[Rfam]
RNA sequence: CUCAAUGUAACACAUAUACCUCGUAUAUCUUCGGGAAUCGGCCCGAACGUUUCUACCCGGCGACCGGAAUCGCCGGACUACGGGAUAGCUUGGUUCGGCC
Numbered sequence: 001c002u003c004a005a006u007g008u009a010a011c012a013c014a015u016a017u018a019c020c021u022c023g024u025a026u027a028u029c030u031u032c033g034g035g036a037a038u039c040g041g042c043c044c045g046a047a048c049g050u051u052u053c054u055a056c057c058c059g060g061c062g063a064c065c066g067g068a069a070u071c072g073c074c075g076g077a078c079u080a081c082g083g084g085a086u087a088g089c090u091u092g093g094u095u096c097g098g099c100c
Stems, first nucleotide, its partner, number of pairs: 018086001020084006030047006057076007
RNA: Purine riboswitch aptamer